[Rfam]
RNA sequence: AGACGCUGUGCGGGAGAGCCUCCGUGACGAGCGAACGGAGCGCCGAAGGAGCAAUACUCCCGUCAAACUCUCAGGCCCAGUCACCGCACGGCAUCA
Numbered sequence: 001a002g003a004c005g006c007u008g009u010g011c012g013g014g015a016g017a018g019c020c021u022c023c024g025u026g027a028c029g030a031g032c033g034a035a036c037g038g039a040g041c042g043c044c045g046a047a048g049g050a051g052c053a054a055u056a057c058u059c060c061c062g063u064c065a066a067a068c069u070c071u072c073a074g075g076c077c078c079a080g081u082c083a084c085c086g087c088a089c090g091g092c093a094u095c096a
Stems, first nucleotide, its partner, number of pairs: 006091008020040006042076003045072002049070003056063002
Source information: A member of the RNA family "Glycine riboswitch aptamer" from Halosaccharopolyspora lacisalsi, 96 nucleotides long. This family represents the bacterial glycine riboswitch.